The family of this 101-nucleotide sequence from Methylomonas sp. DH-1 is "Guanidine-I riboswitch aptamer".
RNA sequence: CAAAAUGGUGACUAGGGUUCCGGUUCGAUUUCGAACGUCAGCGACCGAGAGUUGCCGGCUUCUUUCGGGGAGCUACACGGCGGGAUAAAAGCCCGGGAGGU
Numbered sequence: 001c002a003a004a005a006u007g008g009u010g011a012c013u014a015g016g017g018u019u020c021c022g023g024u025u026c027g028a029u030u031u032c033g034a035a036c037g038u039c040a041g042c043g044a045c046c047g048a049g050a051g052u053u054g055c056c057g058g059c060u061u062c063u064u065u066c067g068g069g070g071a072g073c074u075a076c077a078c079g080g081c082g083g084g085a086u087a088a089a090a091g092c093c094c095g096g097g098a099g100g101u
Base pairs, nucleotide, nucleotide: 007056008055009054010053011052012051015046016045020043021041022039023036024035025034026033027032057074058073059072060071061070062069063068076096078099082094083093084092
A search with the family's covariance model found it, with a score of 80 bits. Gene Ontology term of the family: regulation of gene expression.